Annotation:
Shown here is a 120-nucleotide sequence from Leptolinea tardivitalis, a member of the family "SAM riboswitch aptamer (S box leader)". It scores 87 bits against the family's covariance model.

[Rfam]
RNA sequence: CUCUUAUCCAGAGAGGUGGAGGGACCGGCCCGAUGAUACCUCGGCAACCUGGCAAAACUGAUAUGUGGAUCAGCGAUGCUCAGGUGCCAAUUCCGGCAGAGAAAUUCUGGGAGAUGAGAG
Numbered sequence: 001c002u003c004u005u006a007u008c009c010a011g012a013g014a015g016g017u018g019g020a021g022g023g024a025c026c027g028g029c030c031c032g033a034u035g036a037u038a039c040c041u042c043g044g045c046a047a048c049c050u051g052g053c054a055a056a057a058c059u060g061a062u063a064u065g066u067g068g069a070u071c072a073g074c075g076a077u078g079c080u081c082a083g084g085u086g087c088c089a090a091u092u093c094c095g096g097c098a099g100a101g102a103a104a105u106u107c108u109g110g111g112a113g114a115u116g117a118g119a120g
Stems, first nucleotide, its partner, number of pairs: 001120008013042005021031003025096004043088004048084002051080004092112001097109005